[Rfam]
RNA sequence: AAAUUUAAUAGGCAAACUUAGGGAAAUCUAAGGGCGCAAAGCUAUAGGGACUAAUGUUUUAAUAAACUAUGUCAGCCAGUUGCCAAA
Dot-bracket structure: ...........((...((((((....))))))...))..((((...(((((....((((....))))...)))..))))))......
Shown here is an 87-nucleotide RNA sequence from Clostridium neonatale, a member of the family "c-di-GMP-I riboswitch aptamer". The source organism's lineage runs through Bacteria, Bacillota, Clostridia, Eubacteriales and Clostridium. The base pairs follow the family's consensus structure, which is taken from published work. GEMM was predicted in a large-scale screen for bacterial structured RNA regulatory elements.